RNA sequence: UCCAUCGUGAGGUGGAAUCUGAAGGAAGCCGAAGGCAAAAUCUCGGUCUGAGGGAUACGAACCAGAUAAGAGGCUGAAUUGGGGCGGACGAGUUUGCAUAACAAAACGAAGUCCAACACUACCCGAACUCCAUACAAUAAAUCUGGCAGAUAUACGAGAUGAAAGUUAUCGUU
Numbered sequence: 001u002c003c004a005u006c007g008u009g010a011g012g013u014g015g016a017a018u019c020u021g022a023a024g025g026a027a028g029c030c031g032a033a034g035g036c037a038a039a040a041u042c043u044c045g046g047u048c049u050g051a052g053g054g055a056u057a058c059g060a061a062c063c064a065g066a067u068a069a070g071a072g073g074c075u076g077a078a079u080u081g082g083g084g085c086g087g088a089c090g091a092g093u094u095u096g097c098a099u100a101a102c103a104a105a106a107c108g109a110a111g112u113c114c115a116a117c118a119c120u121a122c123c124c125g126a127a128c129u130c131c132a133u134a135c136a137a138u139a140a141a142u143c144u145g146g147c148a149g150a151u152a153u154a155c156g157a158g159a160u161g162a163a164a165g166u167u168a169u170c171g172u173u
Stems, first nucleotide, its partner, number of pairs: 001016006028173001030171003035166002040160006046151005062146006073138001075136001078133002081131004086114004092107004

Shown here is a 173-nucleotide RNA sequence from Caldicoprobacter faecalis, a member of the family "Group II catalytic intron D1-D4-3". The organism belongs to Caldicoprobacter, within Bacteria.